[Rfam]
RNA sequence: AUUCGUUUUAGAAUCAAGUAUCUUUUAAAAUCAGCCAAUCCUCUGUUCUUAUUAGCUUGAUAUCUAAUACGAAGUCUAUACGACUUCUAGCAUAUCGAACUGAUUUUUGAAAACCGGCAUAGCGCCUGGGGCUUGCUCCGGCUUUGCCACGGGUCUUCUCUGCACUGCAGUACCGCAGAGCUAGGCCUAAUAAAC
Numbered sequence: 001a002u003u004c005g006u007u008u009u010a011g012a013a014u015c016a017a018g019u020a021u022c023u024u025u026u027a028a029a030a031u032c033a034g035c036c037a038a039u040c041c042u043c044u045g046u047u048c049u050u051a052u053u054a055g056c057u058u059g060a061u062a063u064c065u066a067a068u069a070c071g072a073a074g075u076c077u078a079u080a081c082g083a084c085u086u087c088u089a090g091c092a093u094a095u096c097g098a099a100c101u102g103a104u105u106u107u108u109g110a111a112a113a114c115c116g117g118c119a120u121a122g123c124g125c126c127u128g129g130g131g132c133u134u135g136c137u138c139c140g141g142c143u144u145u146g147c148c149a150c151g152g153g154u155c156u157u158c159u160c161u162g163c164a165c166u167g168c169a170g171u172a173c174c175g176c177a178g179a180g181c182u183a184g185g186c187c188u189a190a191u192a193a194a195c
Base pairs, nucleotide, nucleotide: 007030008029009028011026012025050069051068052067053066054065055064071087072086073085074084075083076082116148117147118146119145121143122142123141128139129138130137131136151188152187153186154185155184156183158180159179160178161177162176163175
The family of this 195-nucleotide RNA from Trichogramma brassicae is "U2 spliceosomal RNA".
U2 is a small nuclear RNA (snRNA) component of the spliceosome (involved in pre-mRNA splicing). Complementary binding between U2 snRNA (in an area lying towards the 5' end but 3' to hairpin I) and the branchpoint sequence (BPS) of the intron results the bulging out of an unpaired adenosine, on the BPS, which initiates a nucleophilic attack at the intronic 5' splice site, thus starting the first of two transesterification reactions that mediate splicing.
Pairs were carried over by alignment from the consensus structure, which is taken from published work.
Rfam 15.1 lists 71,512 matches to the family in 2,642 species.
By type it is a spliceosomal small nuclear RNA.